MIR9563 microRNA precursor family: a 116-nucleotide sequence from Brassica oleracea. A search with the family's covariance model found it, with a score of 96 bits.

RNA sequence: GGAAUAUAAAAACCUGUUUCUUAAUUUUUAACUAAAAAAACUAAGAGCUGUUUCUUAAAAAAGAGACGGCUCUUAGUUUUUUUAGUUAAAAGUUAAGAGUCGGGUUCAUAUAUUCU
Dot-bracket structure: ((((((((..((((((.((((((((((((((((((((((.(((((((......................))))))).)))))))))))))))))))))).))))))..))))))))
Gene Ontology terms of the family: miRNA-mediated post-transcriptional gene silencing and RISC complex. The organism belongs to Brassica oleracea, within Eukaryota.